The family of this 74-nucleotide RNA from Polypterus senegalus is "mir-148/mir-152 microRNA precursor family".
The organism belongs to Polypterus, within Eukaryota.
Rfam 15.1 lists 1,272 matches to the family in 609 species.
Rfam links the family to the GO terms RISC complex and miRNA-mediated post-transcriptional gene silencing.
A reference for the family is Lagos-Quintana et al. (2002), "Identification of tissue-specific microRNAs from mouse", Curr Biol.
RNA sequence: UUGAGGUGAAGUUCUGUUAUACACUCAGACUGUGAAUCUGGGGAAGUCAGUGCAUCACAGAACUUUGUCUCGGG
Numbered sequence: 001u002u003g004a005g006g007u008g009a010a011g012u013u014c015u016g017u018u019a020u021a022c023a024c025u026c027a028g029a030c031u032g033u034g035a036a037u038c039u040g041g042g043g044a045a046g047u048c049a050g051u052g053c054a055u056c057a058c059a060g061a062a063c064u065u066u067g068u069c070u071c072g073g074g
Base pairs, nucleotide, nucleotide: 004070005069006068007067008066009065010064011063012062013061014060015059016058022052023051024050025049028048029047030046031045